[Rfam]
RNA: Ribosomal protein L13 leader
Organism: Ligilactobacillus araffinosus
RNA sequence: GGUAUUGUUUGCCCCACAAUAGCCCCGUUAAAACUAUUGUAUGUCAAACAAGCAUAAA
Numbered sequence: 001g002g003u004a005u006u007g008u009u010u011g012c013c014c015c016a017c018a019a020u021a022g023c024c025c026c027g028u029u030a031a032a033a034c035u036a037u038u039g040u041a042u043g044u045c046a047a048a049c050a051a052g053c054a055u056a057a058a
Stems, first nucleotide, its partner, number of pairs: 006054006016040007